Notes: Rfam assigns this 117-nucleotide RNA sequence from Caballeronia telluris to the family "ALIL pseudoknot". The family has 26 seed sequences and 2,146 matches in Rfam 15.1. Rfam classes the family as a cis-regulatory element. Lineage of the source: Bacteria > Pseudomonadota > Betaproteobacteria > Burkholderiaceae > Caballeronia.

[Rfam]
RNA sequence: CGCGUAUUUCGCGCAGGCGGAGCUCGACCGCCGACCAAAGUCAUGAUCACGUUUAUCGACGAUCACCGUGCGCUUUACGGGGUCGAGUCGAUCUGCCGGUUGCUGCCGAUCGCCCCG
Numbered sequence: 001c002g003c004g005u006a007u008u009u010c011g012c013g014c015a016g017g018c019g020g021a022g023c024u025c026g027a028c029c030g031c032c033g034a035c036c037a038a039a040g041u042c043a044u045g046a047u048c049a050c051g052u053u054u055a056u057c058g059a060c061g062a063u064c065a066c067c068g069u070g071c072g073c074u075u076u077a078c079g080g081g082g083u084c085g086a087g088u089c090g091a092u093c094u095g096c097c098g099g100u101u102g103c104u105g106c107c108g109a110u111c112g113c114c115c116c117g
Stems, first nucleotide, its partner, number of pairs: 016032005078117005089112002092109002095106002098103001